[Rfam]
RNA sequence: CCACGCAGCCGGGGAGAUAGCGGUGCCCUGUACCUGCAAUCCGCUACAGCAGGGGUGAUACCAAUCCGAGGGUUUUUAGCUGCAAAGCUGCCUUCUAUAAGUGGUGAUGACGUUUGGGUCUCGUGCAACAGAAAUCUGUGAACCGUGUCAGGGCAGGAAUGCAGCAGCACUAAGCAGAACCUUUUGUGUGACGCGAGGGUGCCUGGAUUGAGCUAACUGUAGGAGUAACGUUUGUGGCGGAAGUUCAAAGUGCGGUGCGUGG
Numbered sequence: 001c002c003a004c005g006c007a008g009c010c011g012g013g014g015a016g017a018u019a020g021c022g023g024u025g026c027c028c029u030g031u032a033c034c035u036g037c038a039a040u041c042c043g044c045u046a047c048a049g050c051a052g053g054g055g056u057g058a059u060a061c062c063a064a065u066c067c068g069a070g071g072g073u074u075u076u077u078a079g080c081u082g083c084a085a086a087g088c089u090g091c092c093u094u095c096u097a098u099a100a101g102u103g104g105u106g107a108u109g110a111c112g113u114u115u116g117g118g119u120c121u122c123g124u125g126c127a128a129c130a131g132a133a134a135u136c137u138g139u140g141a142a143c144c145g146u147g148u149c150a151g152g153g154c155a156g157g158a159a160u161g162c163a164g165c166a167g168c169a170c171u172a173a174g175c176a177g178a179a180c181c182u183u184u185u186g187u188g189u190g191a192c193g194c195g196a197g198g199g200u201g202c203c204u205g206g207a208u209u210g211a212g213c214u215a216a217c218u219g220u221a222g223g224a225g226u227a228a229c230g231u232u233u234g235u236g237g238c239g240g241a242a243g244u245u246c247a248a249a250g251u252g253c254g255g256u257g258c259g260u261g262g
Stems, first nucleotide, its partner, number of pairs: 001262007008056003011029004016024001018022001033053005061255002066250001070246005077240001079238008089227002093224006101217002103214003112208008120197006126188002129186005135178005145170004153162003
Bacterial large signal recognition particle RNA: a 262-nucleotide RNA sequence from Firmicutes bacterium CAG:56.
It scores 177 bits against the family's covariance model.
It is annotated as a non-coding RNA gene.
The source organism's lineage runs through Bacteria, Bacillati and Bacillota.